Source information:
Rfam assigns this 186-nucleotide sequence from Capsicum annuum to the family "Antisense RNA which regulates isiA expression". Lineage of the source: Eukaryota > Euphyllophyta > Solanales > Solanoideae > Capsicum. Pairs were carried over by alignment from the consensus structure, which was predicted with PFOLD.
[Rfam]
RNA sequence: AAUGACCAAAUAUGAUACUCGGGCUAAGGGUCAUGUUGAUAAUUUUUCUUACCUCUCCCCCUCCCGGAGCCCAGGUAUCAUAUAUGCCCCCAAAAUAAAAAGCCUUGAAUACUAGAAAAAAAGCACCUAGAUCUACCAAGAUUGAGUGAAUACAAAAAUUAUGGUGAUUUUAUUUCGAUCUUUCGA
Numbered sequence: 001a002a003u004g005a006c007c008a009a010a011u012a013u014g015a016u017a018c019u020c021g022g023g024c025u026a027a028g029g030g031u032c033a034u035g036u037u038g039a040u041a042a043u044u045u046u047u048c049u050u051a052c053c054u055c056u057c058c059c060c061c062u063c064c065c066g067g068a069g070c071c072c073a074g075g076u077a078u079c080a081u082a083u084a085u086g087c088c089c090c091c092a093a094a095a096u097a098a099a100a101a102g103c104c105u106u107g108a109a110u111a112c113u114a115g116a117a118a119a120a121a122a123g124c125a126c127c128u129a130g131a132u133c134u135a136c137c138a139a140g141a142u143u144g145a146g147u148g149a150a151u152a153c154a155a156a157a158a159u160u161a162u163g164g165u166g167a168u169u170u171u172a173u174u175u176c177g178a179u180c181u182u183u184c185g186a
Base pairs, nucleotide, nucleotide: 145183146182148180149179153177154175155174156173
A search with the family's covariance model found it, with a score of 163 bits. A reference for the family is Duhring et al. (2006), "An internal antisense RNA regulates expression of the photosynthesis gene isiA", Proc Natl Acad Sci U S A. Rfam 15.1 lists 3,397 matches to the family in 659 species.